[Rfam]
RNA sequence: GGUGGCUGGGAAGGCAAGAAGUCGGCAUAGCUGUUUGAAAAUGAUAUACGGCUGUGUCACUUCGAGCCAGCUCAAUCCACC
Numbered sequence: 001g002g003u004g005g006c007u008g009g010g011a012a013g014g015c016a017a018g019a020a021g022u023c024g025g026c027a028u029a030g031c032u033g034u035u036u037g038a039a040a041a042u043g044a045u046a047u048a049c050g051g052c053u054g055u056g057u058c059a060c061u062u063c064g065a066g067c068c069a070g071c072u073c074a075a076u077c078c079a080c081c
Stems, first nucleotide, its partner, number of pairs: 005076001007074004013068003018063004024058008
RNA: mir-31 microRNA precursor family